The family of this 30-nucleotide sequence from Methanocaldococcus jannaschii is "CRISPR RNA direct repeat element".
RNA sequence: AUUAAAAUCAAAUCAAUUCGGAAUGAAAAU
Numbered sequence: 001a002u003u004a005a006a007a008u009c010a011a012a013u014c015a016a017u018u019c020g021g022a023a024u025g026a027a028a029a030u
Stems, first nucleotide, its partner, number of pairs: 013026003017022001

Overview:
The source organism's lineage runs through Archaea, Methanococci, Methanococcales, Methanocaldococcus and Methanocaldococcus jannaschii. It scores 37 bits against the family's covariance model.